[Rfam]
This 307-nucleotide RNA sequence from Raphanus sativus belongs to the Rfam family "Plant signal recognition particle RNA".

RNA sequence: GUCGAGCUUAGUAACACAAGCUUGUGAUCCAAGUGGAGACAUUAAGAUGAUGGGACAUUGGCCAAAUCUCUUUGGGCCGGGUUCGGUCAGGGCUAAUUCUGGCCUGCCCAUUCCAAGUCGGGAAUUGAGGAUAUGGACUCGAGCGAAGGCUUGUGGUUUGGACCCUCUUAGAGCGGAGGAGACUGCGUGAGGCUGGUUUCACAGAGCAGCGUUCACCUCUCGCUUUCGACGGUGGAAGGAUUACAGGCUGGUGCCUUCUGAGCCCACUAUCACCCAAUAGUUCGACUCUAAUUGGACCAUCAUUUUU
Numbered sequence: 001g002u003c004g005a006g007c008u009u010a011g012u013a014a015c016a017c018a019a020g021c022u023u024g025u026g027a028u029c030c031a032a033g034u035g036g037a038g039a040c041a042u043u044a045a046g047a048u049g050a051u052g053g054g055a056c057a058u059u060g061g062c063c064a065a066a067u068c069u070c071u072u073u074g075g076g077c078c079g080g081g082u083u084c085g086g087u088c089a090g091g092g093c094u095a096a097u098u099c100u101g102g103c104c105u106g107c108c109c110a111u112u113c114c115a116a117g118u119c120g121g122g123a124a125u126u127g128a129g130g131a132u133a134u135g136g137a138c139u140c141g142a143g144c145g146a147a148g149g150c151u152u153g154u155g156g157u158u159u160g161g162a163c164c165c166u167c168u169u170a171g172a173g174c175g176g177a178g179g180a181g182a183c184u185g186c187g188u189g190a191g192g193c194u195g196g197u198u199u200c201a202c203a204g205a206g207c208a209g210c211g212u213u214c215a216c217c218u219c220u221c222g223c224u225u226u227c228g229a230c231g232g233u234g235g236a237a238g239g240a241u242u243a244c245a246g247g248c249u250g251g252u253g254c255c256u257u258c259u260g261a262g263c264c265c266a267c268u269a270u271c272a273c274c275c276a277a278u279a280g281u282u283c284g285a286c287u288c289u290a291a292u293u294g295g296a297c298c299a300u301c302a303u304u305u306u307u
Base pairs, nucleotide, nucleotide: 001040002039003038004023005022006021007020008019009018028037029036030035044306045305046304047303048302049301050300051299052298053297056294057293058291059290060289061286063284065282066281068280069279071277072276074274075273079265080264081263082262083261084260085259086258090256091255092254094253095252099251100250101249102248103247104246105245106244108239109238111237112236113235114234115233117230118229119228120227121226122225123224125222127167128166129165130164132162134160135159136158137157138156139155140153141152142151143150144149168173175220176219177218178217179216185212186211187210188209193204194203195202
Taxonomically the source falls in Raphanus (Eukaryota, Streptophyta, Spermatophyta, rosids).
Rfam classes the family as a non-coding RNA gene.
A search with the family's covariance model found it, with a score of 230 bits.